[Rfam]
RNA sequence: CUUCAGCGACCCCAACCAGAGCGGGCGGUCCUCGUCGUGCUCCUUGCCGUAGGUGGCGAGCAGCGCUUGCGCCUC
Numbered sequence: 001c002u003u004c005a006g007c008g009a010c011c012c013c014a015a016c017c018a019g020a021g022c023g024g025g026c027g028g029u030c031c032u033c034g035u036c037g038u039g040c041u042c043c044u045u046g047c048c049g050u051a052g053g054u055g056g057c058g059a060g061c062a063g064c065g066c067u068u069g070c071g072c073c074u075c
Stems, first nucleotide, its partner, number of pairs: 016024002031071001033069001038065002043060003047056003
The record is a 75-nucleotide RNA sequence from Streptomyces sp. 846.5, which matches "ASpks TB sRNA" in Rfam. A search with the family's covariance model found it, with a score of 76 bits. Lineage of the source: Bacteria > Bacillati > Actinomycetota > Kitasatosporales > Streptomyces.